[Rfam]
RNA sequence: CUGAGGCGUCGCAACUGGCGUUGAGAUGGGCAACCAUCGGGGAGCGACUGACACGGUUGGUGGCCGUACGCCUGGGCCACGACG
Numbered sequence: 001c002u003g004a005g006g007c008g009u010c011g012c013a014a015c016u017g018g019c020g021u022u023g024a025g026a027u028g029g030g031c032a033a034c035c036a037u038c039g040g041g042g043a044g045c046g047a048c049u050g051a052c053a054c055g056g057u058u059g060g061u062g063g064c065c066g067u068a069c070g071c072c073u074g075g076g077c078c079a080c081g082a083c084g
Base pairs, nucleotide, nucleotide: 008048009047010046011045012044015041016040017072018071019070020069021068026037027036028035029034061079062078063077064076065075
This 84-nucleotide RNA sequence from Galbitalea soli belongs to the Rfam family "ZMP/ZTP riboswitch aptamer (pfl RNA motif)". The family's consensus secondary structure is taken from published work. Lineage of the source: Bacteria > Actinomycetes > Micrococcales > Microbacteriaceae > Galbitalea.